[Rfam]
RNA sequence: CUUAUGGAGAGUACAAGAACUUGUGAAUAGUAUUUAAGUAAACUUAAAUACGGAAGCAUACUCGACGAAGUAGGAA
Numbered sequence: 001c002u003u004a005u006g007g008a009g010a011g012u013a014c015a016a017g018a019a020c021u022u023g024u025g026a027a028u029a030g031u032a033u034u035u036a037a038g039u040a041a042a043c044u045u046a047a048a049u050a051c052g053g054a055a056g057c058a059u060a061c062u063c064g065a066c067g068a069a070g071u072a073g074g075a076a
Stems, first nucleotide, its partner, number of pairs: 001074005009063005022058003030051003035046002

This 76-nucleotide sequence belongs to the Rfam family "RAGATH-18 RNA". About the family: Actinobacteria, Firmicutes, Fusobacteria, Thermotogae (1 example). It is annotated as a small RNA.